Source information:
A member of the RNA family "c-di-GMP-I riboswitch aptamer" from Desulfallas thermosapovorans, 87 nucleotides long. The base pairs follow the family's consensus structure, which is taken from published work. GEMM was predicted in a large-scale screen for bacterial structured RNA regulatory elements. Genes associated with GEMM are involved in a diverse array of functions, including chemotaxis regulation, signal transduction, secretion and chitin.
[Rfam]
RNA sequence: UAAAAAAACGGGUAAACCAGUUGAAAGGCUGGGGCACAAAGCCAUGGGUCUAAGGCUUACUGAAGCUAUGAUUGCCAGGUUGCUUAA
Numbered sequence: 001u002a003a004a005a006a007a008a009c010g011g012g013u014a015a016a017c018c019a020g021u022u023g024a025a026a027g028g029c030u031g032g033g034g035c036a037c038a039a040a041g042c043c044a045u046g047g048g049u050c051u052a053a054g055g056c057u058u059a060c061u062g063a064a065g066c067u068a069u070g071a072u073u074g075c076c077a078g079g080u081u082g083c084u085u086a087a
Stems, first nucleotide, its partner, number of pairs: 012037002017032006040081004045077003048072003055066004
Dot-bracket structure: ...........((...((((((....))))))...))..((((.((((((....((((....))))...)))..)))))))......

Annotation: The organism belongs to Desulfallas thermosapovorans, within Bacteria.